A member of the RNA family "ssNA-helicase RNA", 51 nucleotides long.

RNA sequence: GUUCCAUAAGGGUUAGUAUUACCCUUAUGGAACAGUAUGUAGCAAGUAGCA
Number, nucleotide and partner (000 for none) at each position: 001g033002u032003u031004c030005c029006a028007u000008a026009a025010g024011g023012g022013u000014u000015a000016g000017u000018a000019u000020u000021a000022c012023c011024c010025u009026u008027a000028u006029g005030g004031a003032a002033c001034a000035g000036u000037a000038u000039g000040u000041a000042g000043c000044a000045a000046g000047u000048a000049g000050c000051a000

Notes
Rfam's curators put it in the seed alignment.